[Rfam]
RNA sequence: AUCCUUGUGCACGGGCGUUAAGCGUUACAGUGAGGAUUCGUCCGAGUACGCUUUUUUGCUUGUUGAAAACUUUAACUUGACCACUCCAUCUGGGCGAUGCCUGGAUGGGAAUUUUUGACACCUACUCUCGAUG
Number, nucleotide and partner (000 for none) at each position: 001a000002u000003c000004c000005u000006u000007g000008u000009g000010c000011a000012c000013g000014g000015g000016c000017g000018u000019u000020a053021a052022g051023c050024g049025u000026u048027a047028c046029a000030g000031u000032g000033a000034g043035g042036a041037u000038u000039c000040g000041u036042c035043c034044g000045a000046g028047u027048a026049c024050g023051c022052u021053u020054u000055u000056u000057u000058g000059c000060u000061u000062g000063u000064u000065g000066a000067a000068a000069a000070c000071u000072u000073u000074a000075a000076c000077u000078u000079g000080a000081c000082c000083a000084c000085u109086c108087c107088a106089u105090c104091u103092g102093g101094g100095c099096g000097a000098u000099g095100c094101c093102u092103g091104g090105a089106u088107g087108g086109g085110a000111a000112u000113u000114u000115u000116u000117g000118a000119c000120a000121c000122c000123u000124a000125c000126u000127c000128u000129c000130g000131a000132u000133g000
Background:
The record is a 133-nucleotide RNA sequence from Lomentospora prolificans, which matches "U4 spliceosomal RNA" in Rfam. By type it is a spliceosomal small nuclear RNA. Rfam links the family to the GO terms spliceosomal tri-snRNP complex assembly and U4 snRNP. A search with the family's covariance model found it, with a score of 100 bits. The source organism's lineage runs through Eukaryota, Opisthokonta, sordariomyceta, Hypocreomycetidae and Lomentospora.